[Rfam]
RNA sequence: ACACCGAAAGGAGGUGAUCCGGCAGAUGUAUUCAGUCCGGACAAGUGAGGUGGCUGCGGGCUAACGGCUCGCCGUCGUAUCUCAAGCGGUACUCGGCCGGUCGAAGGCCGAAAUCCCCAGCAGUCACCCGACCCGCGGACCGCCGGUAUGUCCGGCCGGCUCCCUCUCCGGAGGGACCAUGGUCCGCGGGUCGUCUGCG
Numbered sequence: 001a002c003a004c005c006g007a008a009a010g011g012a013g014g015u016g017a018u019c020c021g022g023c024a025g026a027u028g029u030a031u032u033c034a035g036u037c038c039g040g041a042c043a044a045g046u047g048a049g050g051u052g053g054c055u056g057c058g059g060g061c062u063a064a065c066g067g068c069u070c071g072c073c074g075u076c077g078u079a080u081c082u083c084a085a086g087c088g089g090u091a092c093u094c095g096g097c098c099g100g101u102c103g104a105a106g107g108c109c110g111a112a113a114u115c116c117c118c119a120g121c122a123g124u125c126a127c128c129c130g131a132c133c134c135g136c137g138g139a140c141c142g143c144c145g146g147u148a149u150g151u152c153c154g155g156c157c158g159g160c161u162c163c164c165u166c167u168c169c170g171g172a173g174g175g176a177c178c179a180u181g182g183u184c185c186g187c188g189g190g191u192c193g194u195c196u197g198c199g
Base pairs, nucleotide, nucleotide: 014057015056016055018053059109060108061107062106065103067102069100070099071097072096073095129193130192131191132190133189134188135187136186137185138184139183140182141181142160143159144158145157146156147155

Background:
The record is a 199-nucleotide RNA from Streptomyces corynorhini, which matches "Actinobacteria sRNA Ms_IGR-5" in Rfam. The source organism's lineage runs through Bacteria, Bacillati, Actinomycetota, Kitasatosporales and Streptomyces. It is annotated as a small RNA. The pairing is the family consensus, mapped onto this sequence.